Description
Rfam assigns this 98-nucleotide RNA from Pelosinus sp. UFO1 to the family "Guanidine-I riboswitch aptamer".
[Rfam]
RNA sequence: AGAAAAGCUUUCUAGGGUUCCGUGGCAACAAUGCCAGUCUGGUCCGAGAGAAAGCGCACAGUAAGCUGUGUACACGGAAGGAUAAAAGCCUGGGAGUA
Numbered sequence: 001a002g003a004a005a006a007g008c009u010u011u012c013u014a015g016g017g018u019u020c021c022g023u024g025g026c027a028a029c030a031a032u033g034c035c036a037g038u039c040u041g042g043u044c045c046g047a048g049a050g051a052a053a054g055c056g057c058a059c060a061g062u063a064a065g066c067u068g069u070g071u072a073c074a075c076g077g078a079a080g081g082a083u084a085a086a087a088g089c090c091u092g093g094g095a096g097u098a
Base pairs, nucleotide, nucleotide: 007055008054009053010052011051012050015045016044020042021041022039023036024035025034026033027032056071057070058069059068060067061066073093075096079091080090081089
The source organism's lineage runs through Bacteria, Bacillati, Bacillota, Sporomusaceae and Pelosinus.